Description:
Small nucleolar RNA Z221/R21b: a 90-nucleotide sequence from Thalictrum thalictroides. The source organism's lineage runs through Eukaryota, Streptophyta, Embryophyta, Tracheophyta and Thalictrum.
[Rfam]
RNA sequence: GUGCUAUGAAGAUGAGAUAGCCGUGCACCACUCUGAGAUUGAUUUUUCAGUCUGUACUGAUUCUUGACUCAUACCCAUUUAUCUGAGCAC
Numbered sequence: 001g002u003g004c005u006a007u008g009a010a011g012a013u014g015a016g017a018u019a020g021c022c023g024u025g026c027a028c029c030a031c032u033c034u035g036a037g038a039u040u041g042a043u044u045u046u047u048c049a050g051u052c053u054g055u056a057c058u059g060a061u062u063c064u065u066g067a068c069u070c071a072u073a074c075c076c077a078u079u080u081a082u083c084u085g086a087g088c089a090c
Base pairs, nucleotide, nucleotide: 001090002089003088004087
Dot-bracket structure: ((((..................................................................................))))
Pairs were carried over by alignment from the consensus structure, which was predicted with WAR. The family has 12 seed sequences and 588 matches in Rfam 15.1. The family's RNA type in Rfam is C/D-box small nucleolar RNA.